The family of this 155-nucleotide RNA from Anaerosphaera aminiphila is "M-box riboswitch aptamer (ykoK leader)". The base pairs follow the family's consensus structure. The source organism's lineage runs through Bacteria, Bacillati, Tissierellales, Peptoniphilaceae and Anaerosphaera aminiphila. A reference for the family is Barrick et al. (2004), "New RNA motifs suggest an expanded scope for riboswitches in bacterial genetic control", Proc Natl Acad Sci U S A.
Nucleotides: 155
Base pairs, nucleotide, nucleotide: 005151007149009147010146011145013097015140016139017138020134021133022132026129027128028127029126030125031124032123039115040114041113042112043111045077046075047074048072049071055066056065057064058063085105086104087103090100091099092098
Number, partner (000 for none) and nucleotide at each position: 001000u002000u003000g004000u005151u006000g007149u008000u009147c010146c011145g012000g013097u014000a015140g016139g017138u018000g019000a020134g021133g022132c023000u024000a025000c026129u027128a028127u029126a030125g031124g032123g033000a034000u035000a036000a037000g038000g039115a040114c041113u042112g043111u044000u045077g046075c047074c048072g049071c050000a051000a052000c053000u054000u055066a056065a057064u058063g059000g060000a061000g062000a063058c064057a065056u066055u067000a068000a069000u070000c071049g072048c073000u074047g075046g076000u077045u078000u079000g080000a081000a082000c083000a084000g085105g086104c087103c088000a089000u090100a091099u092098c093000a094000u095000g096000a097013a098092g099091g100090u101000a102000u103087g104086g105085c106000a107000u108000a109000a110000c111043a112042c113041a114040g115039u116000u117000u118000c119000a120000u121000c122000g123032c124031c125030c126029u127028a128027u129026a130000a131000a132022g133021u134020c135000a136000a137000a138017g139016c140015u141000c142000a143000a144000a145011c146010g147009g148000c149007a150000a151005a152000u153000u154000u155000a